[Rfam]
RNA sequence: UCCGUCGAGGGGCGCUGCGACCGUGGAAAGCCACGGCCAGGCUCGACGCGAUCCCACUGCGACAACGGCGCCCGUUAAUG
Numbered sequence: 001u002c003c004g005u006c007g008a009g010g011g012g013c014g015c016u017g018c019g020a021c022c023g024u025g026g027a028a029a030g031c032c033a034c035g036g037c038c039a040g041g042c043u044c045g046a047c048g049c050g051a052u053c054c055c056a057c058u059g060c061g062a063c064a065a066c067g068g069c070g071c072c073c074g075u076u077a078a079u080g
Base pairs, nucleotide, nucleotide: 003048004047005046006045007044008043021036022035023034024033025032026031
Background
SAH (S-adenosyl-L-homocysteine) riboswitch aptamer: an 80-nucleotide RNA from Luteimonas marina. The base pairs follow the family's consensus structure, which is taken from published work. It scores 58 bits against the family's covariance model. Lineage of the source: Bacteria > Pseudomonadati > Pseudomonadota > Gammaproteobacteria > Luteimonas.